[Rfam]
RNA: Potassium channel RNA editing signal
Organism: Leptobrachium leishanense
RNA sequence: UUUAGAUAUGGUGACAUGGUACCCAAGACUAUCGCAGGAAAAAUCUUUGGUUCCAUCUGCUCACUGAGUGGAGUACUUGUGAUAGCACUUCCAGUCCCUGUCAUCGUGUCAAAU
Numbered sequence: 001u002u003u004a005g006a007u008a009u010g011g012u013g014a015c016a017u018g019g020u021a022c023c024c025a026a027g028a029c030u031a032u033c034g035c036a037g038g039a040a041a042a043a044u045c046u047u048u049g050g051u052u053c054c055a056u057c058u059g060c061u062c063a064c065u066g067a068g069u070g071g072a073g074u075a076c077u078u079g080u081g082a083u084a085g086c087a088c089u090u091c092c093a094g095u096c097c098c099u100g101u102c103a104u105c106g107u108g109u110c111a112a113a114u
Stems, first nucleotide, its partner, number of pairs: 002113001005110001007108005013102004018097002021095002037077002040074001050062001